RNA sequence: GCCAAGGCUGAACAGCUUGGCACUUCGGGCGCCGGCGGGUGUCCGGCGCUCUCAUAUCCAUGUUGCUCACUGGAGGAUGUGGCUAUGAGAU
Numbered sequence: 001g002c003c004a005a006g007g008c009u010g011a012a013c014a015g016c017u018u019g020g021c022a023c024u025u026c027g028g029g030c031g032c033c034g035g036c037g038g039g040u041g042u043c044c045g046g047c048g049c050u051c052u053c054a055u056a057u058c059c060a061u062g063u064u065g066c067u068c069a070c071u072g073g074a075g076g077a078u079g080u081g082g083c084u085a086u087g088a089g090a091u
Stems, first nucleotide, its partner, number of pairs: 001021006008015002028050008051089006058082007066075003
Repression of heat shock gene expression (ROSE) element: a 91-nucleotide RNA from Methylobacterium nodulans. By type it is an RNA thermoregulator. From the family's description: This family represents a 5' UTR cis-regulatory element found in heat shock mRNAs and is known as the ROSE (repression of heat shock gene expression) element. The ROSE element is a negative regulator of heat shock gene expression. The secondary structure is thought to be regulated by temperature. On this family, see Nocker et al., Nucleic Acids Res 2001: "A mRNA-based thermosensor controls expression of rhizobial heat shock genes".